[Rfam]
RNA sequence: CUCAAAGGUAGAGGCCGCGAUAGGAAAGAGUAAGCUAUGGGAGAUUUAAUGGAAUCUGUGAUCAUAGGUUGAAAGGGACUAUUGCCGAAAUAUAAGAAUAACCAUCUUAUUCAUAUAUUGGGACUACAUUGAAUAAAUGUAGUACUGUCAUAAGAUUUAUUUUAUGGAGAGCUAUUUGGAGA
Numbered sequence: 001c002u003c004a005a006a007g008g009u010a011g012a013g014g015c016c017g018c019g020a021u022a023g024g025a026a027a028g029a030g031u032a033a034g035c036u037a038u039g040g041g042a043g044a045u046u047u048a049a050u051g052g053a054a055u056c057u058g059u060g061a062u063c064a065u066a067g068g069u070u071g072a073a074a075g076g077g078a079c080u081a082u083u084g085c086c087g088a089a090a091u092a093u094a095a096g097a098a099u100a101a102c103c104a105u106c107u108u109a110u111u112c113a114u115a116u117a118u119u120g121g122g123a124c125u126a127c128a129u130u131g132a133a134u135a136a137a138u139g140u141a142g143u144a145c146u147g148u149c150a151u152a153a154g155a156u157u158u159a160u161u162u163u164a165u166g167g168a169g170a171g172c173u174a175u176u177u178g179g180a181g182a
Base pairs, nucleotide, nucleotide: 006177007176008175009174010173011172017085018084019083020082021081022080023079033070034069035067036066037065038064039063040062089119090118091117092116093115094114096112097111098110099109100108120146121145123143124142125141126140127139128138129137130136148167149166150165151164152163153162154161
RNA: Lysine riboswitch aptamer